Glycine riboswitch aptamer: a 103-nucleotide sequence from Thermasporomyces composti.

[Rfam]
RNA sequence: UAACCCCGCGUGGGAGAGUCUUCGCGUCCCGGGCGAGACCGACGCGAAGCGCCGAAGGGGCAACACCCCGGAACCUCUCAGGCUCCAGGACCGCGCGGGCGAG
Numbered sequence: 001u002a003a004c005c006c007c008g009c010g011u012g013g014g015a016g017a018g019u020c021u022u023c024g025c026g027u028c029c030c031g032g033g034c035g036a037g038a039c040c041g042a043c044g045c046g047a048a049g050c051g052c053c054g055a056a057g058g059g060g061c062a063a064c065a066c067c068c069c070g071g072a073a074c075c076u077c078u079c080a081g082g083c084u085c086c087a088g089g090a091c092c093g094c095g096c097g098g099g100c101g102a103g
Base pairs, nucleotide, nucleotide: 006098007097008096009095010094011093012092013091020049021048022047023046024045025044026043027042028041051083052082053081054079055078058077059076060075064070

Taxonomically the source falls in Thermasporomyces (Bacteria, Bacillati, Actinomycetes, Propionibacteriales).